RNA: Small nucleolar RNA SNORD103/SNORD85
Organism: Scyliorhinus torazame
RNA sequence: UCUGGCAAUGAUGACACACUUGCCCUCACUGAGAACACUGUUCGUUAAUGAGAAUUUCAAUCUUGUACUCAUAAAGACCUGAGCCAGA
Numbered sequence: 001u002c003u004g005g006c007a008a009u010g011a012u013g014a015c016a017c018a019c020u021u022g023c024c025c026u027c028a029c030u031g032a033g034a035a036c037a038c039u040g041u042u043c044g045u046u047a048a049u050g051a052g053a054a055u056u057u058c059a060a061u062c063u064u065g066u067a068c069u070c071a072u073a074a075a076g077a078c079c080u081g082a083g084c085c086a087g088a
Base pairs, nucleotide, nucleotide: 001088002087003086004085005084006083